[Rfam]
RNA: M-box riboswitch aptamer (ykoK leader)
Organism: Anaerobacillus arseniciselenatis
RNA sequence: UAAACGCUUCGUUAGGUGAGGCUCCUGUGUUGGAGAUAUGCUACUGCCCAGAAAUGUCGAGAGACGCCAACGGGUCAACAGGAACUAUCGAUCAAGGUAGUUUUUAAUGUAGCUGGCAAAUGUCCUAUGCCACACAGUGCUAAAGCUCAACUUGGAAGAUAUAU
Numbered sequence: 001u002a003a004a005c006g007c008u009u010c011g012u013u014a015g016g017u018g019a020g021g022c023u024c025c026u027g028u029g030u031u032g033g034a035g036a037u038a039u040g041c042u043a044c045u046g047c048c049c050a051g052a053a054a055u056g057u058c059g060a061g062a063g064a065c066g067c068c069a070a071c072g073g074g075u076c077a078a079c080a081g082g083a084a085c086u087a088u089c090g091a092u093c094a095a096g097g098u099a100g101u102u103u104u105u106a107a108u109g110u111a112g113c114u115g116g117c118a119a120a121u122g123u124c125c126u127a128u129g130c131c132a133c134a135c136a137g138u139g140c141u142a143a144a145g146c147u148c149a150a151c152u153u154g155g156a157a158g159a160u161a162u163a164u
Stems, first nucleotide, its partner, number of pairs: 007158004011151002013095001015147003020141003025137006032131002040113005046075004055066004081104004087098003115125002